[Rfam]
RNA sequence: AUUCAUUAAUUUUGGGUUUUUAAUAGAUGUGCUCAAUGUCAGGUGAAAUCACAAUUAGGAAUUUGAAACUGAGUAAAGAAAGAAAAUAAUUUAAGAAGUAAAUUUGAUAUAACUUAGAGAGAUUGGUACAACCGAGUGGAUUCGAACCACCGACCCCUACCA
Numbered sequence: 001a002u003u004c005a006u007u008a009a010u011u012u013u014g015g016g017u018u019u020u021u022a023a024u025a026g027a028u029g030u031g032c033u034c035a036a037u038g039u040c041a042g043g044u045g046a047a048a049u050c051a052c053a054a055u056u057a058g059g060a061a062u063u064u065g066a067a068a069c070u071g072a073g074u075a076a077a078g079a080a081a082g083a084a085a086a087u088a089a090u091u092u093a094a095g096a097a098g099u100a101a102a103u104u105u106g107a108u109a110u111a112a113c114u115u116a117g118a119g120a121g122a123u124u125g126g127u128a129c130a131a132c133c134g135a136g137u138g139g140a141u142u143c144g145a146a147c148c149a150c151c152g153a154c155c156c157c158u159a160c161c162a
Base pairs, nucleotide, nucleotide: 020046021045022044026040027039028038029037062077063076064075124159125158126157133152134151136150137149138148139147
RNA: Bacterial antisense RNA HPnc0260
Organism: Parashewanella spongiae